[Rfam]
Nucleotides: 091
Stems, first nucleotide, its partner, number of pairs: 003053001005051001008048005015041002017079004024037004068086005
Number, partner (000 for none) and nucleotide at each position: 001000u002000g003053g004000g005051c006000g007000g008048g009047c010046c011045g012044c013000g014000a015041c016040u017079g018078g019077c020076g021000c022000a023000c024037g025036g026035g027034g028000a029000g030000g031000g032000a033000a034027c035026c036025c037024c038000g039000a040016g041015g042000g043000a044012g045011c046010g047009g048008c049000g050000a051005g052000g053003c054000g055000c056000a057000u058000c059000a060000c061000c062000g063000c064000c065000g066000g067000a068086c069085u070084g071083c072082c073000g074000u075000a076020c077019g078018c079017c080000u081000g082072g083071g084070c085069a086068g087000c088000c089000g090000g091000g